The family of this 101-nucleotide RNA from Paenibacillus sabuli is "Purine riboswitch aptamer". The organism belongs to Paenibacillus, within Bacteria. It scores 67 bits against the family's covariance model. On this family, see Mandal et al., Cell 2003: "Riboswitches Control Fundamental Biochemical Pathways in Bacillus subtilis and Other Bacteria".
RNA sequence: GACAAACAAUCGAAUAUGUGUCGUAUAAUCCCGGGAAUCGGCCCGGGAGUCUCUACGAGAUCACCGUAAAUGAUCUGGCUACGAACGAUGGAACCCUGCAG
Numbered sequence: 001g002a003c004a005a006a007c008a009a010u011c012g013a014a015u016a017u018g019u020g021u022c023g024u025a026u027a028a029u030c031c032c033g034g035g036a037a038u039c040g041g042c043c044c045g046g047g048a049g050u051c052u053c054u055a056c057g058a059g060a061u062c063a064c065c066g067u068a069a070a071u072g073a074u075c076u077g078g079c080u081a082c083g084a085a086c087g088a089u090g091g092a093a094c095c096c097u098g099c100a101g
Base pairs, nucleotide, nucleotide: 021084022083023082024081025080029048030047031046032045033044034043035042058076059075060074061073062072063071

Pairs were carried over by alignment from the consensus structure, which is taken from published work.